[Rfam]
RNA: mir-28 microRNA precursor family
RNA sequence: UCUGCCCUCAAGGAGCUUAUAGUCUAUUUGGGAGAAGAAAAGGGUAGUGUCAAAAAAUCACUCCUAAAUAGUCACUUUGUGAUCUCUUCCUAUUUAUUGACACUACCCUUUUCUUCUCCCAAAUAGACUAUAAGCUCCUUGAGGGCAGA
Numbered sequence: 001u002c003u004g005c006c007c008u009c010a011a012g013g014a015g016c017u018u019a020u021a022g023u024c025u026a027u028u029u030g031g032g033a034g035a036a037g038a039a040a041a042g043g044g045u046a047g048u049g050u051c052a053a054a055a056a057a058u059c060a061c062u063c064c065u066a067a068a069u070a071g072u073c074a075c076u077u078u079g080u081g082a083u084c085u086c087u088u089c090c091u092a093u094u095u096a097u098u099g100a101c102a103c104u105a106c107c108c109u110u111u112u113c114u115u116c117u118c119c120c121a122a123a124u125a126g127a128c129u130a131u132a133a134g135c136u137c138c139u140u141g142a143g144g145g146c147a148g149a
Stems, first nucleotide, its partner, number of pairs: 001149029030116003